[Rfam]
RNA: GcvB RNA
Organism: Photobacterium proteolyticum
RNA sequence: ACGCAACGGUGAGGGAGGUUUGAUUUUUUGCUCUCAGGCAGUUAAGUCUCAUUCAUUGUUGCGAUGUUGUGUUUGCAUAUUGUCCGGGUUGUGCCGGACAGGUAGUCAAUCUACCAAUUUUACUUCCUGUAUUUUUGACCUGUCUGUCAAAGUUUAUUGUUAGCACUGCGCCCCAACGCAGUGCUUUUUUUU
Dot-bracket structure: .....(...((....(((((..(((.((((....)))).))).)).))))).)...........................(((((((......)))))))(((((.....)))))...............((..(....................)..)).((((((((........)))))))).......